[Rfam]
RNA sequence: GUCAACCACCCCACGGCUAAAGCCGGGGACUUACGAUGAGUAAGCCCGGGGUUGACCAGCCCGCACGAAGGCGACGGCCUUCGCGCAGCCGUUAUCCCGGUCAUGGCACCCUGGGGUGCGAGGCCAGCUCCAGGCCCUGCCGUCCGGCAUUAAACAGGCAUACGGGGUUGAAGCCAGUGUGCCGGACAUCACAAGCCGAGGUAACCGGGCGAGGCCAACGUUAC
Numbered sequence: 001g002u003c004a005a006c007c008a009c010c011c012c013a014c015g016g017c018u019a020a021a022g023c024c025g026g027g028g029a030c031u032u033a034c035g036a037u038g039a040g041u042a043a044g045c046c047c048g049g050g051g052u053u054g055a056c057c058a059g060c061c062c063g064c065a066c067g068a069a070g071g072c073g074a075c076g077g078c079c080u081u082c083g084c085g086c087a088g089c090c091g092u093u094a095u096c097c098c099g100g101u102c103a104u105g106g107c108a109c110c111c112u113g114g115g116g117u118g119c120g121a122g123g124c125c126a127g128c129u130c131c132a133g134g135c136c137c138u139g140c141c142g143u144c145c146g147g148c149a150u151u152a153a154a155c156a157g158g159c160a161u162a163c164g165g166g167g168u169u170g171a172a173g174c175c176a177g178u179g180u181g182c183c184g185g186a187c188a189u190c191a192c193a194a195g196c197c198g199a200g201g202u203a204a205c206c207g208g209g210c211g212a213g214g215c216c217a218a219c220g221u222u223a224c
Base pairs, nucleotide, nucleotide: 001056002055003054004053005052006051007050010028011027012025016023017022031042059210060209061208062207063206064085066083067082068081069080070079071078072077091205092204093203094202095201096200098198099197100196101195106140107139110134111133112132113131114130115129116128117127122216123215124214125213142187143186144185145184146183147182148181149180150179154178155177157175158174159173161171
Dot-bracket structure: (((((((..(((...((....)).).))..(..........).......)))))))..((((((.(((((((....))))))).).....((((((.((((....((..((((((((....[[[[.))))))))....)).(((((((((...((.(((.(.........).))).))))))))))).......)))).)))))))))))..]]]]........